[Rfam]
RNA: Wolbachia sRNA 46
Organism: Trichonephila clavata
RNA sequence: UCCAAGUAGCCCCCUAUGGUGUCAUCCCAGUGCCCAGACACUGGGAUCCAGGAAAAUUGAUUGUGCACUAUAGCAACAUUUUUGAUCAAAAACUGGAUUCCAGUGUCAAGCACUGGAAUGACACCCUUCCGAUGGGAACUG
Number, nucleotide and partner (000 for none) at each position: 001u000002c000003c000004a000005a000006g000007u000008a000009g000010c000011c136012c135013c134014c000015u132016a000017u000018g000019g000020u123021g122022u121023c120024a119025u118026c000027c116028c115029a114030g113031u112032g111033c110034c000035c000036a000037g107038a106039c105040a104041c103042u102043g101044g100045g099046a098047u097048c096049c095050a094051g093052g000053a000054a000055a000056a000057u000058u000059g000060a000061u000062u000063g000064u000065g000066c000067a000068c000069u000070a000071u000072a000073g000074c000075a000076a000077c000078a000079u000080u000081u000082u000083u000084g000085a000086u000087c000088a000089a000090a000091a000092a000093c051094u050095g049096g048097a047098u046099u045100c044101c043102a042103g041104u040105g039106u038107c037108a000109a000110g033111c032112a031113c030114u029115g028116g027117a000118a025119u024120g023121a022122c021123a020124c000125c000126c000127u000128u000129c000130c000131g000132a015133u000134g013135g012136g011137a000138a000139c000140u000141g000